[Rfam]
Shown here is a 73-nucleotide RNA sequence from Caenorhabditis remanei, a member of the family "mir-357 microRNA precursor family".
Rfam links the family to the GO terms RISC complex and miRNA-mediated post-transcriptional gene silencing.
It is one of the family's seed sequences.
The family has 5 seed sequences and 8 matches in Rfam 15.1.
RNA sequence: GCGGAUUCCAGUAACUCUGAGCAUAUACAUGAAGUUUCAAAACAAUGUAAAUGCCAGUCGUUGCUGGAAUUCG
Numbered sequence: 001g002c003g004g005a006u007u008c009c010a011g012u013a014a015c016u017c018u019g020a021g022c023a024u025a026u027a028c029a030u031g032a033a034g035u036u037u038c039a040a041a042a043c044a045a046u047g048u049a050a051a052u053g054c055c056a057g058u059c060g061u062u063g064c065u066g067g068a069a070u071u072c073g
Base pairs, nucleotide, nucleotide: 008067009066010065012063013062014061015060017057018056019055021054022053023052024051026049027048028047029046030045

Notes: Lineage of the source: Eukaryota > Rhabditina > Rhabditoidea > Rhabditidae > Caenorhabditis.